RNA sequence: CCUACGGAGAGUACAAGAACUUGUAAUUAGUAUUUGAAUUUAUUCAGUAUGAAAGCAUACUCGAUGAAGUAGGAA
Numbered sequence: 001c002c003u004a005c006g007g008a009g010a011g012u013a014c015a016a017g018a019a020c021u022u023g024u025a026a027u028u029a030g031u032a033u034u035u036g037a038a039u040u041u042a043u044u045c046a047g048u049a050u051g052a053a054a055g056c057a058u059a060c061u062c063g064a065u066g067a068a069g070u071a072g073g074a075a
Stems, first nucleotide, its partner, number of pairs: 001073005009062005022057003030050003035046002

RAGATH-18 RNA: a 75-nucleotide RNA. Rfam describes the family as follows. Actinobacteria, Firmicutes, Fusobacteria, Thermotogae (1 example). By type it is a small RNA.